Shown here is a 172-nucleotide RNA from Alkalicella caledoniensis, a member of the family "Group II catalytic intron D1-D4-3". The family has 406 seed sequences and 4,274 matches in Rfam 15.1.
RNA sequence: UCCACCGUGAGGUGGAAUCUGAAGGAAGCCCUAGGCAAAAUCCCGGUCUGAGGAACACGAACCACAUAUAAGGCUAUCUAGGACGGACGAGUUUGCCACACAAAACGAAGUCCAACACUACCCGAAUCCUACAUAGUAAAUGUGGGAGAUAUAUGGGAUGAAGGUUAGCGUA
Numbered sequence: 001u002c003c004a005c006c007g008u009g010a011g012g013u014g015g016a017a018u019c020u021g022a023a024g025g026a027a028g029c030c031c032u033a034g035g036c037a038a039a040a041u042c043c044c045g046g047u048c049u050g051a052g053g054a055a056c057a058c059g060a061a062c063c064a065c066a067u068a069u070a071a072g073g074c075u076a077u078c079u080a081g082g083a084c085g086g087a088c089g090a091g092u093u094u095g096c097c098a099c100a101c102a103a104a105a106c107g108a109a110g111u112c113c114a115a116c117a118c119u120a121c122c123c124g125a126a127u128c129c130u131a132c133a134u135a136g137u138a139a140a141u142g143u144g145g146g147a148g149a150u151a152u153a154u155g156g157g158a159u160g161a162a163g164g165u166u167a168g169c170g171u172a
Base pairs, nucleotide, nucleotide: 001016002015003014004013005012006011030170032168035165036164040159041158042157043156044155045154046150047149048148049147062145063144064143065142066141067140073137074136075135077133079131080130081129082128083127085113086112087111088110091106092105093104094103